[Rfam]
RNA sequence: AUCUUAUCAAGAGUGGUGGAGGGACUGGCCCUGUGAAACCCAGCAACCUUUAAUAGAAGGUUAUUACUUUAUGCAAAAGCAUAAGGUCUAUUUUCUAUUAGUUUGGUGCUAAAUCCUGCAGCUUUGGCUGAAAGAUGAGAG
Numbered sequence: 001a002u003c004u005u006a007u008c009a010a011g012a013g014u015g016g017u018g019g020a021g022g023g024a025c026u027g028g029c030c031c032u033g034u035g036a037a038a039c040c041c042a043g044c045a046a047c048c049u050u051u052a053a054u055a056g057a058a059g060g061u062u063a064u065u066a067c068u069u070u071a072u073g074c075a076a077a078a079g080c081a082u083a084a085g086g087u088c089u090a091u092u093u094u095c096u097a098u099u100a101g102u103u104u105g106g107u108g109c110u111a112a113a114u115c116c117u118g119c120a121g122c123u124u125u126g127g128c129u130g131a132a133a134g135a136u137g138a139g140a141g
Stems, first nucleotide, its partner, number of pairs: 002140007013041001015040003021031003025118001027116002042110004047106002050101012114133001119130004
RNA: SAM riboswitch aptamer (S box leader)